The record is a 78-nucleotide RNA sequence, which matches "mir-971 microRNA precursor family" in Rfam. Its family is annotated with miRNA-mediated post-transcriptional gene silencing and RISC complex in the Gene Ontology. Rfam 15.1 lists 118 matches to the family in 116 species.
[Rfam]
RNA sequence: CGGCCGGGUCACUCUAAGUUCGAAUACCGAGCCCUGAAAGAUAACAGCUUGGUGUUCUACCUUACAGUGACUCGACCG
Numbered sequence: 001c002g003g004c005c006g007g008g009u010c011a012c013u014c015u016a017a018g019u020u021c022g023a024a025u026a027c028c029g030a031g032c033c034c035u036g037a038a039a040g041a042u043a044a045c046a047g048c049u050u051g052g053u054g055u056u057c058u059a060c061c062u063u064a065c066a067g068u069g070a071c072u073c074g075a076c077c078g
Stems, first nucleotide, its partner, number of pairs: 006073008015064003025054008